[Rfam]
This 166-nucleotide RNA from Clostridium sp. chh4-2 belongs to the Rfam family "c-di-AMP riboswitch aptamer (ydaO/yuaA leader)". The base pairs follow the family's consensus structure. A search with the family's covariance model found it, with a score of 77 bits. Gene Ontology terms of the family: regulation of gene expression and cyclic-di-AMP binding.
RNA sequence: AACUAUAUAAUGCCGAAUGCUAUAUUCCCUGUAAACCAGGAUAUGACAGCGGGAGAACCAAUUAAUUGGGGUGAAUUCAGAGAUUUGAGUUUAAAUUAUCAGAUCGACGAUAGGGGACCUUCUUCUCCGAACCCGUCAGCUAAUCUCGUAGGCGAAGGAAGGUUUG
Numbered sequence: 001a002a003c004u005a006u007a008u009a010a011u012g013c014c015g016a017a018u019g020c021u022a023u024a025u026u027c028c029c030u031g032u033a034a035a036c037c038a039g040g041a042u043a044u045g046a047c048a049g050c051g052g053g054a055g056a057a058c059c060a061a062u063u064a065a066u067u068g069g070g071g072u073g074a075a076u077u078c079a080g081a082g083a084u085u086u087g088a089g090u091u092u093a094a095a096u097u098a099u100c101a102g103a104u105c106g107a108c109g110a111u112a113g114g115g116g117a118c119c120u121u122c123u124u125c126u127c128c129g130a131a132c133c134c135g136u137c138a139g140c141u142a143a144u145c146u147c148g149u150a151g152g153c154g155a156a157g158g159a160a161g162g163u164u165u166g
Stems, first nucleotide, its partner, number of pairs: 011154004018048002049149006059068002069134003077110002113128004